[Rfam]
The family of this 74-nucleotide RNA sequence from Galemys pyrenaicus is "mir-205 microRNA precursor family".
The source organism's lineage runs through Eukaryota, Euteleostomi, Mammalia, Boreoeutheria and Galemys.
Rfam links the family to the GO terms RISC complex and miRNA-mediated post-transcriptional gene silencing.
The base pairs follow the family's consensus structure, which was predicted with RNAalifold.
A search with the family's covariance model found it, with a score of 85 bits.
On this family, see Lim et al., Science 2003: "Vertebrate microRNA genes".

RNA sequence: UCCUCUUGUCCUUCAUUCCACCGGAGUCUGUCUCGUUCCCAACCAGAUUUCAGUGGGGUGAAGAGCAGGAGGCG
Number, nucleotide and partner (000 for none) at each position: 001u000002c000003c000004u000005c000006u000007u000008g000009u000010c000011c063012u062013u061014c060015a059016u058017u000018c000019c055020a054021c053022c000023g051024g050025a049026g048027u000028c046029u045030g044031u000032c000033u000034c000035g000036u000037u000038c000039c000040c000041a000042a000043c000044c030045a029046g028047a000048u026049u025050u024051c023052a000053g021054u020055g019056g000057g000058g016059u015060g014061a013062a012063g011064a000065g000066c000067a000068g000069g000070a000071g000072g000073c000074g000